[Rfam]
RNA: U4atac minor spliceosomal RNA
RNA sequence: ACCAUCCUUUUCUUGGGGUUGUACUACUGUCCAGUGAGUACAUAGUGAGGGCAGUACUGCUAACACCUACACAACAUGCCUCCAUCAUCUAGAACUUUGCUUUACUUUGGUACAAUUUUUGGAAAA
Numbered sequence: 001a002c003c004a005u006c007c008u009u010u011u012c013u014u015g016g017g018g019u020u021g022u023a024c025u026a027c028u029g030u031c032c033a034g035u036g037a038g039u040a041c042a043u044a045g046u047g048a049g050g051g052c053a054g055u056a057c058u059g060c061u062a063a064c065a066c067c068u069a070c071a072c073a074a075c076a077u078g079c080c081u082c083c084a085u086c087a088u089c090u091a092g093a094a095c096u097u098u099g100c101u102u103u104a105c106u107u108u109g110g111u112a113c114a115a116u117u118u119u120u121g122g123a124a125a126a
Stems, first nucleotide, its partner, number of pairs: 006018004021060003026055007038046002084111004090104004095099001